Shown here is a 118-nucleotide RNA from Protea cynaroides, a member of the family "Small nucleolar RNA U19".
[Rfam]
RNA sequence: AUCUGGCUUAGUUAUGGGGCAGAGAGUGAUGGAUCAACUCUUCUGAUCUUCCAAAGCCCUUUUGAGGGGACUGUUUGAACACUCUUAUCUGCUGUCCUCCAAGCAGCCUUGGACAUUA
Numbered sequence: 001a002u003c004u005g006g007c008u009u010a011g012u013u014a015u016g017g018g019g020c021a022g023a024g025a026g027u028g029a030u031g032g033a034u035c036a037a038c039u040c041u042u043c044u045g046a047u048c049u050u051c052c053a054a055a056g057c058c059c060u061u062u063u064g065a066g067g068g069g070a071c072u073g074u075u076u077g078a079a080c081a082c083u084c085u086u087a088u089c090u091g092c093u094g095u096c097c098u099c100c101a102a103g104c105a106g107c108c109u110u111g112g113a114c115a116u117u118a
Stems, first nucleotide, its partner, number of pairs: 004021002007018003032048005051112004056107002061103004066099006073092002
The family's consensus secondary structure was predicted with WAR. Rfam links the family to the GO terms nucleolus and RNA processing. Rfam classes the family as an H/ACA-box small nucleolar RNA. Lineage of the source: Eukaryota > Tracheophyta > Spermatophyta > Magnoliopsida > Protea. On this family, see Marker et al., Curr Biol 2002: "Experimental RNomics: identification of 140 candidates for small non-messenger RNAs in the plant Arabidopsis thaliana".